[Rfam]
RNA sequence: ACACGGAAGGGAGGUGGUCCAAGAAGUGAUUUCUCAUUGGACGCGUGAGGUGACUGGGCGCUAGGGCGCACGGCAACUGCGCUGAAGCGCAAUCCCACCAGCAUCACCGCAGCCCGCGGGCCGUGCAGGUCGUCCCCUGCACAACGCCAGCCGCUCGUCUCGGCAGGCAAGGCCCGCGGGCUGGUCCAU
Numbered sequence: 001a002c003a004c005g006g007a008a009g010g011g012a013g014g015u016g017g018u019c020c021a022a023g024a025a026g027u028g029a030u031u032u033c034u035c036a037u038u039g040g041a042c043g044c045g046u047g048a049g050g051u052g053a054c055u056g057g058g059c060g061c062u063a064g065g066g067c068g069c070a071c072g073g074c075a076a077c078u079g080c081g082c083u084g085a086a087g088c089g090c091a092a093u094c095c096c097a098c099c100a101g102c103a104u105c106a107c108c109g110c111a112g113c114c115c116g117c118g119g120g121c122c123g124u125g126c127a128g129g130u131c132g133u134c135c136c137c138u139g140c141a142c143a144a145c146g147c148c149a150g151c152c153g154c155u156c157g158u159c160u161c162g163g164c165a166g167g168c169a170a171g172g173c174c175c176g177c178g179g180g181c182u183g184g185u186c187c188a189u
Base pairs, nucleotide, nucleotide: 015056016055017054018053059089060088061087062086066082067081068080069079110183111182112181113180114179115178116177117176118175119174120173121172122171124141125140126139127138128137129136
RNA: Actinobacteria sRNA Ms_IGR-5
Organism: Pedococcus cremeus